[Rfam]
RNA sequence: UAUAAUAGUUAUGCAAUAGUCAGGAAACUCAAGGGUGGUCAUCGUUACCCCAGAAGGAAAGUGGGUGAUGCAUAUGAUGACAGUAGAUCAGACAUUAAUGCUUAUGAUAGCAUUUGCAAGUUUGGUAUUGUCCAUCAUAUCUUUUAGAGACAAAAAAUAACCCACCCUUGAGCGUUGGAGUGCAAUAGGGUGAGUUUUUUACCUUAACACGCUGAUCCCCUUUGAAGGGAACCUGCUAUUGUAUGACUGUUUGGUGUUCUAGCACCGAGC
Numbered sequence: 001u002a003u004a005a006u007a008g009u010u011a012u013g014c015a016a017u018a019g020u021c022a023g024g025a026a027a028c029u030c031a032a033g034g035g036u037g038g039u040c041a042u043c044g045u046u047a048c049c050c051c052a053g054a055a056g057g058a059a060a061g062u063g064g065g066u067g068a069u070g071c072a073u074a075u076g077a078u079g080a081c082a083g084u085a086g087a088u089c090a091g092a093c094a095u096u097a098a099u100g101c102u103u104a105u106g107a108u109a110g111c112a113u114u115u116g117c118a119a120g121u122u123u124g125g126u127a128u129u130g131u132c133c134a135u136c137a138u139a140u141c142u143u144u145u146a147g148a149g150a151c152a153a154a155a156a157a158u159a160a161c162c163c164a165c166c167c168u169u170g171a172g173c174g175u176u177g178g179a180g181u182g183c184a185a186u187a188g189g190g191u192g193a194g195u196u197u198u199u200u201a202c203c204u205u206a207a208c209a210c211g212c213u214g215a216u217c218c219c220c221u222u223u224g225a226a227g228g229g230a231a232c233c234u235g236c237u238a239u240u241g242u243a244u245g246a247c248u249g250u251u252u253g254g255u256g257u258u259c260u261a262g263c264a265c266c267g268a269g270c
Stems, first nucleotide, its partner, number of pairs: 001243005007237003020215004028172008037162003045067001048065003079132007093106002184200002216230004249270009
RNA: BsrG
Organism: Metabacillus litoralis